[Rfam]
RNA: TPP riboswitch aptamer (THI element)
RNA sequence: GGAGGACCACACGGGAGCCCGGCGGACCGGGCUGAGAGGCGGGCUGACACGGCCUGCGACCGUCCGAACCUGAUCCGGGUCAUACCGGCGAAGGGAGAAGAGCAGCCUUGUCA
Numbered sequence: 001g002g003a004g005g006a007c008c009a010c011a012c013g014g015g016a017g018c019c020c021g022g023c024g025g026a027c028c029g030g031g032c033u034g035a036g037a038g039g040c041g042g043g044c045u046g047a048c049a050c051g052g053c054c055u056g057c058g059a060c061c062g063u064c065c066g067a068a069c070c071u072g073a074u075c076c077g078g079g080u081c082a083u084a085c086c087g088g089c090g091a092a093g094g095g096a097g098a099a100g101a102g103c104a105g106c107c108u109u110g111u112c113a
Stems, first nucleotide, its partner, number of pairs: 007100001010097001011063004017032005039057008069094003075088004
Dot-bracket structure: ......(..(((((..(((((......)))))......((((((((...))))))))..)))).....(((...((((......))))...)))..)..).............